[Rfam]
RNA sequence: UCUCGGGUCCGGGCCCCUCUGGCGACGACGGCGGUCGUCGUGAUGUCGGAUCUUCGUC
Numbered sequence: 001u002c003u004c005g006g007g008u009c010c011g012g013g014c015c016c017c018u019c020u021g022g023c024g025a026c027g028a029c030g031g032c033g034g035u036c037g038u039c040g041u042g043a044u045g046u047c048g049g050a051u052c053u054u055c056g057u058c
Base pairs, nucleotide, nucleotide: 006052007051008050009049010048011047012046022041023040024039025038026037027036028035029034
Dot-bracket structure: .....(((((((.........((((((((....))))))))....)))))))......